Background
The record is a 111-nucleotide sequence from Streptomyces sp. NL15-2K, which matches "Glycine riboswitch aptamer" in Rfam. The source organism's lineage runs through Bacteria, Bacillati, Kitasatosporales, Streptomycetaceae and Streptomyces. The match comes from Rfam's covariance-model search (66 bits). From the family's description: This family represents the bacterial glycine riboswitch. The family is grouped with related families in Rfam's "Glycine riboswitch clan".
[Rfam]
RNA sequence: UGAAUCCGCGCGGGAGAGUUCCGGGUCGUACGUCCGUCGUACCGAUGCCCGGGCGCCGAAGGAGCAAGUCCCUCCCUUGAAUCUCUCAGGCCCCGUUACCGCGCGGGCGAG
Dot-bracket structure: .....((((((((......(((((((....................))))))).(((((..(((...(.........)....))))).))).......)))))))).....
Numbered sequence: 001u002g003a004a005u006c007c008g009c010g011c012g013g014g015a016g017a018g019u020u021c022c023g024g025g026u027c028g029u030a031c032g033u034c035c036g037u038c039g040u041a042c043c044g045a046u047g048c049c050c051g052g053g054c055g056c057c058g059a060a061g062g063a064g065c066a067a068g069u070c071c072c073u074c075c076c077u078u079g080a081a082u083c084u085c086u087c088a089g090g091c092c093c094c095g096u097u098a099c100c101g102c103g104c105g106g107g108c109g110a111g
Stems, first nucleotide, its partner, number of pairs: 006106008020053007055091003058087002062085003068078001